A member of the RNA family "Glycine riboswitch aptamer" from Comamonas sp. 26, 92 nucleotides long. About the family: This family represents the bacterial glycine riboswitch. The base pairs follow the family's consensus structure. The source organism's lineage runs through Bacteria, Pseudomonadota, Burkholderiales, Comamonadaceae and Comamonas.
RNA sequence: GCCCAUCCUGCGGGAGAGCGGAACCUGCAACGGUUCCCGCCGAAGGCGCAAACUCCCAUAAUCGCUCAGGCAAUAAGUACCGCAGGUGGGUC
Numbered sequence: 001g002c003c004c005a006u007c008c009u010g011c012g013g014g015a016g017a018g019c020g021g022a023a024c025c026u027g028c029a030a031c032g033g034u035u036c037c038c039g040c041c042g043a044a045g046g047c048g049c050a051a052a053c054u055c056c057c058a059u060a061a062u063c064g065c066u067c068a069g070g071c072a073a074u075a076a077g078u079a080c081c082g083c084a085g086g087u088g089g090g091u092c
Stems, first nucleotide, its partner, number of pairs: 007086007020037004039071003042067002046065003052059001